Notes:
Shown here is a 105-nucleotide sequence from Stellera chamaejasme, a member of the family "Plastid-rps12 3UTR RNA". Rfam's curators write: Plastid rpl20 is a non-coding RNA (ncRNA) recognised in plastids. It was found in the three prime untranslated region (3UTR) of rps12 gene, its 3UTR location sugest a role in transcript maduration. By type it is a cis-regulatory element. Rfam's curators put it in the seed alignment. The literature on the family includes a 2023 paper in Plant Commun by Richter et al., "Retrograde signaling in plants: A critical review focusing on the GUN pathway and beyond". Lineage of the source: Eukaryota > Embryophyta > Spermatophyta > malvids > Stellera. Rfam 15.1 lists 1,710 matches to the family in 1,426 species.

RNA sequence: GGUUUCCAUUGGUGCAAAUCCAAUCACUUCCAUUUGUAAUUUAAGAUGAAAAAAAAGUAUCCAUUGGUAGCAAAUGCUUAUCCAUUAAGCGGUUAAAAUCUUAUU
Numbered sequence: 001g002g003u004u005u006c007c008a009u010u011g012g013u014g015c016a017a018a019u020c021c022a023a024u025c026a027c028u029u030c031c032a033u034u035u036g037u038a039a040u041u042u043a044a045g046a047u048g049a050a051a052a053a054a055a056a057g058u059a060u061c062c063a064u065u066g067g068u069a070g071c072a073a074a075u076g077c078u079u080a081u082c083c084a085u086u087a088a089g090c091g092g093u094u095a096a097a098a099u100c101u102u103a104u105u
Base pairs, nucleotide, nucleotide: 009023010022011021012020059094061092062091063085064084066082067081068080069079070078